[Rfam]
RNA sequence: ACUGAUCUUCGGGGCAGGUGAAAUUCCUGACCGGCGGUAAAGCUGCGAAGCGAAGCCCGCGACUCCCUUAGCCAACAAUGGCAGAGGGACUGACUUGGUGAGAAUCCAAGGCCGACGGUAAAGUCCGGAUGGGAGAAGAUCGCC
Numbered sequence: 001a002c003u004g005a006u007c008u009u010c011g012g013g014g015c016a017g018g019u020g021a022a023a024u025u026c027c028u029g030a031c032c033g034g035c036g037g038u039a040a041a042g043c044u045g046c047g048a049a050g051c052g053a054a055g056c057c058c059g060c061g062a063c064u065c066c067c068u069u070a071g072c073c074a075a076c077a078a079u080g081g082c083a084g085a086g087g088g089a090c091u092g093a094c095u096u097g098g099u100g101a102g103a104a105u106c107c108a109a110g111g112c113c114g115a116c117g118g119u120a121a122a123g124u125c126c127g128g129a130u131g132g133g134a135g136a137a138g139a140u141c142g143c144c
Stems, first nucleotide, its partner, number of pairs: 003142008016028003030124002032114002034060004055112002064089005094110005116127003
Shown here is a 144-nucleotide RNA from Paenibacillus oryzae, a member of the family "FMN riboswitch aptamer (RFN element)". It scores 113 bits against the family's covariance model. From the family's description: The RFN element is a highly conserved domain that is found frequently in the 5'-untranslated regions of prokaryotic mRNAs that encode for flavin mononucleotide (FMN) biosynthesis and transport proteins. This element is a metabolite-dependent riboswitch that directly binds FMN in the absence of proteins.